[Rfam]
RNA: Small nucleolar RNA SNORA1
RNA sequence: AGCCUCAUUCUAUUGAAAAUGGGCACUGUUGUUCAUGGGGCCUAUAAAUUGUUAAUGUGGCUACACUGAGAACACAGGUUUUGCUUCCAUCACUGUAAUAUUAUUGCAAUGGUGACAGUGAGACAUGUAACUUUU
Numbered sequence: 001a002g003c004c005u006c007a008u009u010c011u012a013u014u015g016a017a018a019a020u021g022g023g024c025a026c027u028g029u030u031g032u033u034c035a036u037g038g039g040g041c042c043u044a045u046a047a048a049u050u051g052u053u054a055a056u057g058u059g060g061c062u063a064c065a066c067u068g069a070g071a072a073c074a075c076a077g078g079u080u081u082u083g084c085u086u087c088c089a090u091c092a093c094u095g096u097a098a099u100a101u102u103a104u105u106g107c108a109a110u111g112g113u114g115a116c117a118g119u120g121a122g123a124c125a126u127g128u129a130a131c132u133u134u135u
Stems, first nucleotide, its partner, number of pairs: 002061003006057003020044005026038001074128003078124001088114005